The record is a 120-nucleotide sequence from Hydromonas duriensis, which matches "Glycine riboswitch aptamer" in Rfam.

[Rfam]
RNA sequence: UUAUAUUAUUCUGGAGAGCGUCGCACAUCACGUCAACGUUGCAUGUCGCCGACCACCGAAGGGGCGCGCAAAACAUCGUUUUGCCACAAUCUCUCAGGUAUCAAGGACAGAACGGGAUUU
Numbered sequence: 001u002u003a004u005a006u007u008a009u010u011c012u013g014g015a016g017a018g019c020g021u022c023g024c025a026c027a028u029c030a031c032g033u034c035a036a037c038g039u040u041g042c043a044u045g046u047c048g049c050c051g052a053c054c055a056c057c058g059a060a061g062g063g064g065c066g067c068g069c070a071a072a073a074c075a076u077c078g079u080u081u082u083g084c085c086a087c088a089a090u091c092u093c094u095c096a097g098g099u100a101u102c103a104a105g106g107a108c109a110g111a112a113c114g115g116g117a118u119u120u
Stems, first nucleotide, its partner, number of pairs: 006115002009112005020053004055099003058095002062093003068087001

The source organism's lineage runs through Bacteria, Pseudomonadati, Pseudomonadota, Burkholderiaceae and Hydromonas.